Acido-Lenti-1 RNA: a 46-nucleotide RNA from Limnoglobus roseus. Rfam classes the family as a small RNA. The base pairs follow the family's consensus structure, which is taken from published work.

[Rfam]
RNA sequence: CCAGGGGUUUGCACCCCUGGCUAACGACUGCCGCCGCUCCGCGGCU
Numbered sequence: 001c002c003a004g005g006g007g008u009u010u011g012c013a014c015c016c017c018u019g020g021c022u023a024a025c026g027a028c029u030g031c032c033g034c035c036g037c038u039c040c041g042c043g044g045c046u
Base pairs, nucleotide, nucleotide: 001020002019003018004017005016006015007014008013033045034044035043036042037041